[Rfam]
RNA sequence: CCGGGGCGCAGGGCUUAGCCCACCUGUGAACAGCGUCUGCCGCCGCCUCCUGUUCACAGUGGCUAAGUUCCGCGGCCCGG
Numbered sequence: 001c002c003g004g005g006g007c008g009c010a011g012g013g014c015u016u017a018g019c020c021c022a023c024c025u026g027u028g029a030a031c032a033g034c035g036u037c038u039g040c041c042g043c044c045g046c047c048u049c050c051u052g053u054u055c056a057c058a059g060u061g062g063c064u065a066a067g068u069u070c071c072g073c074g075g076c077c078c079g080g
Stems, first nucleotide, its partner, number of pairs: 011070010026057007
The family of this 80-nucleotide sequence from Crypturellus undulatus is "mir-27 microRNA precursor family". The base pairs follow the family's consensus structure, which was predicted with RNAalifold. The source organism's lineage runs through Eukaryota, Chordata, Saurischia, Tinamidae and Crypturellus.